[Rfam]
RNA sequence: AAGCAUCACUAGGGGCGCUAUCGCUGAGAGACCUGACGGUCGACCCUUUGAACCUGAUGCGGUUAAUACCGCCGAAGGAAAGUGGUAAGGCUGUUUU
Numbered sequence: 001a002a003g004c005a006u007c008a009c010u011a012g013g014g015g016c017g018c019u020a021u022c023g024c025u026g027a028g029a030g031a032c033c034u035g036a037c038g039g040u041c042g043a044c045c046c047u048u049u050g051a052a053c054c055u056g057a058u059g060c061g062g063u064u065a066a067u068a069c070c071g072c073c074g075a076a077g078g079a080a081a082g083u084g085g086u087a088a089g090g091c092u093g094u095u096u097u
Base pairs, nucleotide, nucleotide: 006085007084008083009082010081011047012046013045014044017024018023031040032039033038053078054077055076059072060071061070062069
Shown here is a 97-nucleotide RNA sequence from Acidaminococcus fermentans, a member of the family "TPP riboswitch aptamer (THI element)". It scores 70 bits against the family's covariance model. From the family's description: Vitamin B(1) in its active form thiamin pyrophosphate (TPP) is an essential coenzyme that is synthesised by coupling of pyrimidine and thiazole moieties in bacteria.